RNA sequence: CUAUGUCUGACAUUACUAGACAUGGCGGAAGGAG
Number, nucleotide and partner (000 for none) at each position: 001c025002u024003a023004u022005g021006u020007c019008u018009g000010a000011c000012a000013u000014u000015a000016c000017u000018a008019g007020a006021c005022a004023u003024g002025g001026c000027g000028g000029a000030a000031g000032g000033a000034g000
RNA: L31-Firmicutes ribosomal protein leader